[Rfam]
RNA sequence: GUAUCCCACGCGGGAGAGAGGGCGGCCCGCGAGUCGCCCCGCCGAAGGCGCAACCGGCCCCCGGAACCGCUCAGGCAAAAGGGCCGCGUGGGCAGG
Numbered sequence: 001g002u003a004u005c006c007c008a009c010g011c012g013g014g015a016g017a018g019a020g021g022g023c024g025g026c027c028c029g030c031g032a033g034u035c036g037c038c039c040c041g042c043c044g045a046a047g048g049c050g051c052a053a054c055c056g057g058c059c060c061c062c063g064g065a066a067c068c069g070c071u072c073a074g075g076c077a078a079a080a081g082g083g084c085c086g087c088g089u090g091g092g093c094a095g096g
Stems, first nucleotide, its partner, number of pairs: 006091008020039006041076003044072002048070003054064002
RNA: Glycine riboswitch aptamer